[Rfam]
RNA sequence: CGCCGAAUCCUGCCGCCGUCCGGGAAUCCGCAACCCACUCACGUACGGCAGGAGCGGGGGACCCAGGUAAGUCGCCGAUCCGGUACCCGGAGCGGCUAGGGGUGAAGUCGCAUGUCCAUGCGGCCAGACAUCUCCCGUCUGAACCCGACAGCUCACCUCGCAGGCGCCGGAGAGGAAAUU
Numbered sequence: 001c002g003c004c005g006a007a008u009c010c011u012g013c014c015g016c017c018g019u020c021c022g023g024g025a026a027u028c029c030g031c032a033a034c035c036c037a038c039u040c041a042c043g044u045a046c047g048g049c050a051g052g053a054g055c056g057g058g059g060g061a062c063c064c065a066g067g068u069a070a071g072u073c074g075c076c077g078a079u080c081c082g083g084u085a086c087c088c089g090g091a092g093c094g095g096c097u098a099g100g101g102g103u104g105a106a107g108u109c110g111c112a113u114g115u116c117c118a119u120g121c122g123g124c125c126a127g128a129c130a131u132c133u134c135c136c137g138u139c140u141g142a143a144c145c146c147g148a149c150a151g152c153u154c155a156c157c158u159c160g161c162a163g164g165c166g167c168c169g170g171a172g173a174g175g176a177a178a179u180u
Stems, first nucleotide, its partner, number of pairs: 001166004008053008054161006064099001100146003108123004126140004
RNA: c-di-AMP riboswitch aptamer (ydaO/yuaA leader)
Organism: Streptomyces sp. WAC04770